This 80-nucleotide RNA sequence from Auanema sp. JU1783 belongs to the Rfam family "SmY spliceosomal RNA". The match comes from Rfam's covariance-model search (44 bits). It is annotated as a spliceosomal small nuclear RNA. For this family Rfam cites "A novel family of C. elegans snRNPs contains proteins associated with trans-splicing" (MacMorris et al., RNA, 2007).
[Rfam]
RNA sequence: UAGUAUAUAUAAACACUAACUAGGUCUUUAUAAGACCUUAGAGUUCAAUUUUUGGAUCCCACUGGGUUUUCCCAGUGGGU
Numbered sequence: 001u002a003g004u005a006u007a008u009a010u011a012a013a014c015a016c017u018a019a020c021u022a023g024g025u026c027u028u029u030a031u032a033a034g035a036c037c038u039u040a041g042a043g044u045u046c047a048a049u050u051u052u053u054g055g056a057u058c059c060c061a062c063u064g065g066g067u068u069u070u071c072c073c074a075g076u077g078g079g080u
Stems, first nucleotide, its partner, number of pairs: 022038003026034003058079009